Shown here is a 171-nucleotide RNA sequence from Triticum urartu, a member of the family "MIR2118 microRNA precursor family". The organism belongs to Triticum, within Eukaryota. A reference for the family is Xue et al. (2009), "Characterization and expression profiles of miRNAs in rice seeds", Nucleic Acids Res. Gene Ontology terms of the family: RISC complex and miRNA-mediated post-transcriptional gene silencing. The base pairs follow the family's consensus structure, which was predicted with RNAalifold.
RNA sequence: GUCAGGAAGAGGAAAAAUAGAGGGCCUUAGAGUAGUGGGAAUGGGGACAUGGAGGAAAGCCUAACUUGUUGUAUUUUCACCUCUAGUGUUGGAGGUGAGAAUUCAGCUUGGUGUUUCCUGAUGCCUCCCAUUCCUAUUAUUCUAAAGCACUCCUUCCUCUUCCUUUGUUGU
Numbered sequence: 001g002u003c004a005g006g007a008a009g010a011g012g013a014a015a016a017a018u019a020g021a022g023g024g025c026c027u028u029a030g031a032g033u034a035g036u037g038g039g040a041a042u043g044g045g046g047a048c049a050u051g052g053a054g055g056a057a058a059g060c061c062u063a064a065c066u067u068g069u070u071g072u073a074u075u076u077u078c079a080c081c082u083c084u085a086g087u088g089u090u091g092g093a094g095g096u097g098a099g100a101a102u103u104c105a106g107c108u109u110g111g112u113g114u115u116u117c118c119u120g121a122u123g124c125c126u127c128c129c130a131u132u133c134c135u136a137u138u139a140u141u142c143u144a145a146a147g148c149a150c151u152c153c154u155u156c157c158u159c160u161u162c163c164u165u166u167g168u169u170g171u
Base pairs, nucleotide, nucleotide: 009162010161011160012159013158016155017154020152021151022150025147027145028144029143030142031141032140033139034138036136037135038134039133040132041131042130043129044128045127046126048123049122050121052119054118055117057116058115059114060113